RNA sequence: AUAUUAGGACAAUUAUAUAUAUAAAGUAGUACCGAGGGCUAAAGCCCGAAUACGUUAAACGGUUGUCCGUGUACGAUCCUCUGCGAGUUGUUUAUCUUCACAGCAGAUUACGUAAGUAAGCGUUUGGAGCAUUUUUAAAAUGGGCCAACUUUGUUUAUGCUU
Numbered sequence: 001a002u003a004u005u006a007g008g009a010c011a012a013u014u015a016u017a018u019a020u021a022u023a024a025a026g027u028a029g030u031a032c033c034g035a036g037g038g039c040u041a042a043a044g045c046c047c048g049a050a051u052a053c054g055u056u057a058a059a060c061g062g063u064u065g066u067c068c069g070u071g072u073a074c075g076a077u078c079c080u081c082u083g084c085g086a087g088u089u090g091u092u093u094a095u096c097u098u099c100a101c102a103g104c105a106g107a108u109u110a111c112g113u114a115a116g117u118a119a120g121c122g123u124u125u126g127g128a129g130c131a132u133u134u135u136u137a138a139a140a141u142g143g144g145c146c147a148a149c150u151u152u153g154u155u156u157a158u159g160c161u162u
Stems, first nucleotide, its partner, number of pairs: 009066004013024004029053003036047004081106004108119004124148004
Dot-bracket structure: ........((((((((....))))....(((....((((....))))...))).........))))..............((((..................)))).((((....))))....((((.................))))..............
Source information: The family of this 162-nucleotide RNA sequence is "OTKONC RNA". Rfam classes the family as a small RNA. The family's consensus secondary structure is taken from published work.